Bacterial large subunit ribosomal RNA: a 61-nucleotide part of an RNA from Ktedonobacter racemifer. Pairs were carried over by alignment from the consensus structure, which is taken from published work.
RNA sequence: AGUCAGAGGCCACUGUUCCGUUGCGGAACCAAGGGCUGAUGGCGUGCCUUUUGUAGAAUGA
Numbered sequence: 001a002g003u004c005a006g007a008g009g010c011c012a013c014u015g016u017u018c019c020g021u022u023g024c025g026g027a028a029c030c031a032a033g034g035g036c037u038g039a040u041g042g043c044g045u046g047c048c049u050u051u052u053g054u055a056g057a058a059u060g061a
Stems, first nucleotide, its partner, number of pairs: 002043004008037004047060001049058001